[Rfam]
Background: This 55-nucleotide RNA from Salvelinus namaycush belongs to the Rfam family "U7 small nuclear RNA". Animal histone pre-mRNAs are spliced by a different mechanism than nuclear pre-mRNAs and self-splicing introns. This processing involves the U7 snRNP, which contains only one RNA species: U7. The 5' end of U7 RNA is thought to base-pair to a conserved spacer element downstream of the cleavage site in histone pre-mRNA. This family contains a number of annotated U7 pseudogenes.
RNA sequence: GAAAAUUUGCUCUCUUCAUAUUUCUCCAGUAGGUUUCCUCAAGGAGAAAGCCCCC
Dot-bracket structure: ...............................(((((.(((...))).)))))...
It scores 35 bits against the family's covariance model. The family's consensus secondary structure was predicted with PFOLD.